[Rfam]
RNA: Purine riboswitch aptamer
Organism: Jeotgalibacillus sp. S-D1
RNA sequence: UAACUUUCUUAUAUCGUUACUCGUAUAUCCUCAGAAAUAUGGUCUGAGUGUCUCUACCCGGUUCCCAUUAAAAGAACUGGACUACGGGUUAAAGUAUUUUGUUG
Numbered sequence: 001u002a003a004c005u006u007u008c009u010u011a012u013a014u015c016g017u018u019a020c021u022c023g024u025a026u027a028u029c030c031u032c033a034g035a036a037a038u039a040u041g042g043u044c045u046g047a048g049u050g051u052c053u054c055u056a057c058c059c060g061g062u063u064c065c066c067a068u069u070a071a072a073a074g075a076a077c078u079g080g081a082c083u084a085c086g087g088g089u090u091a092a093a094g095u096a097u098u099u100u101g102u103u104g
Base pairs, nucleotide, nucleotide: 019089020088021087022086023085024084025083030048031047032046033045034044035043058080059079060078061077062076063075064074